miR-430 microRNA precursor family: a 68-nucleotide RNA from Muraenolepis orangiensis. It scores 47 bits against the family's covariance model. The base pairs follow the family's consensus structure, which was predicted with RNAalifold. On this family, see Giraldez et al., Science 2005: "MicroRNAs regulate brain morphogenesis in zebrafish".
RNA sequence: AUGAUAACUUCAAAUAUAAGCAUUCAUGAUUUUUGUGUUCAUAAGUGCUUCUUUUUGGGGUUUUACUG
Numbered sequence: 001a002u003g004a005u006a007a008c009u010u011c012a013a014a015u016a017u018a019a020g021c022a023u024u025c026a027u028g029a030u031u032u033u034u035g036u037g038u039u040c041a042u043a044a045g046u047g048c049u050u051c052u053u054u055u056u057g058g059g060g061u062u063u064u065a066c067u068g
Stems, first nucleotide, its partner, number of pairs: 004064001006062006014055001016052001018050007026042003